[Rfam]
Shown here is a 103-nucleotide RNA sequence from Urocitellus parryii, a member of the family "Vault RNA".

RNA sequence: GGGUCGGCUUUAGCUCAAGCGGUUACUUCCUCAAGCCAGGCUUCCUAGUUGUCUAAUCCCGAGUGCUGGGGUUCGAGACCCGCGGGUGCUUUCUGACCCUUUU
Numbered sequence: 001g002g003g004u005c006g007g008c009u010u011u012a013g014c015u016c017a018a019g020c021g022g023u024u025a026c027u028u029c030c031u032c033a034a035g036c037c038a039g040g041c042u043u044c045c046u047a048g049u050u051g052u053c054u055a056a057u058c059c060c061g062a063g064u065g066c067u068g069g070g071g072u073u074c075g076a077g078a079c080c081c082g083c084g085g086g087u088g089c090u091u092u093c094u095g096a097c098c099c100u101u102u103u
Base pairs, nucleotide, nucleotide: 002098003097004096005095006094007093013087014086015085016084019083020082021081022080027077028076029075
The family's RNA type in Rfam is non-coding RNA gene. For this family Rfam cites "Evolution of Vault RNAs" (Stadler et al., Mol Biol Evol, 2009). The organism belongs to Urocitellus, within Eukaryota.